RNA sequence: UUUCUCCUAGCUCUGCUCGGCUUCACCUCUCCAGUGGUGUAGCUGUCGCCAUCAGGAGAGAAAGAAAUGAGUAAUUUAGUGCACGGCAGAAAGACUGUCCUACUGGUCUCUCUGUUCCCUUUUCUUUACUC
Numbered sequence: 001u002u003u004c005u006c007c008u009a010g011c012u013c014u015g016c017u018c019g020g021c022u023u024c025a026c027c028u029c030u031c032c033a034g035u036g037g038u039g040u041a042g043c044u045g046u047c048g049c050c051a052u053c054a055g056g057a058g059a060g061a062a063a064g065a066a067a068u069g070a071g072u073a074a075u076u077u078a079g080u081g082c083a084c085g086g087c088a089g090a091a092a093g094a095c096u097g098u099c100c101u102a103c104u105g106g107u108c109u110c111u112c113u114g115u116u117c118c119c120u121u122u123u124c125u126u127u128a129c130u131c
Base pairs, nucleotide, nucleotide: 002065003064005062007060008059012056013055014054015053019044020043021042022041024039025038026037073121074120079119081117088113089112090111092109093108094107095106096105

Shown here is a 131-nucleotide RNA from Myripristis murdjan, a member of the family "Small nucleolar RNA SNORA64/SNORA10 family". The family is grouped with related families in Rfam's "SNORA64 clan". The organism belongs to Myripristis, within Eukaryota. Rfam links the family to the GO terms nucleolus and RNA processing. The match comes from Rfam's covariance-model search (35 bits). Rfam's curators write: This family belongs to the H/ACA class of small nucleolar RNAs (snoRNAs) which act as guides in the the modification of uridines to pseudouridines. The family's RNA type in Rfam is H/ACA-box small nucleolar RNA.